A member of the RNA family "ZMP/ZTP riboswitch aptamer (pfl RNA motif)" from Streptomyces coryli, 93 nucleotides long.
Lineage of the source: Bacteria > Actinomycetota > Actinomycetes > Streptomycetaceae > Streptomyces.

RNA sequence: GCCGCGGGUCGUGACUGGCGUGUCGGGAUGGGCGUAACCAUCGGGGAGCGGCCCCGUCCGUGUGACGUAGUGCCGCGCGCCUGGGCUUCUUGG
Numbered sequence: 001g002c003c004g005c006g007g008g009u010c011g012u013g014a015c016u017g018g019c020g021u022g023u024c025g026g027g028a029u030g031g032g033c034g035u036a037a038c039c040a041u042c043g044g045g046g047a048g049c050g051g052c053c054c055c056g057u058c059c060g061u062g063u064g065a066c067g068u069a070g071u072g073c074c075g076c077g078c079g080c081c082u083g084g085g086c087u088u089c090u091u092g093g
Stems, first nucleotide, its partner, number of pairs: 006054007015045002017081005028041004070088001072086003
Dot-bracket structure: .....(((((((..(([[[[[......((((......))))..))..)))))))...............(.(((..]]]]]..))).).....
It scores 47 bits against the family's covariance model. Rfam 15.1 lists 3,295 matches to the family in 2,545 species.